[Rfam]
RNA sequence: UAUCUUGUUGUCAAUGAUGGAGUUUUGUUGAAUGAAAACAAAUGAUUUUACAUUCGUCACUACCACUGAGACAACAGGGAA
Numbered sequence: 001u002a003u004c005u006u007g008u009u010g011u012c013a014a015u016g017a018u019g020g021a022g023u024u025u026u027g028u029u030g031a032a033u034g035a036a037a038a039c040a041a042a043u044g045a046u047u048u049u050a051c052a053u054u055c056g057u058c059a060c061u062a063c064c065a066c067u068g069a070g071a072c073a074a075c076a077g078g079g080a081a
Stems, first nucleotide, its partner, number of pairs: 001081001003079010
RNA: Small nucleolar RNA SNORD70
Organism: Sarcophilus harrisii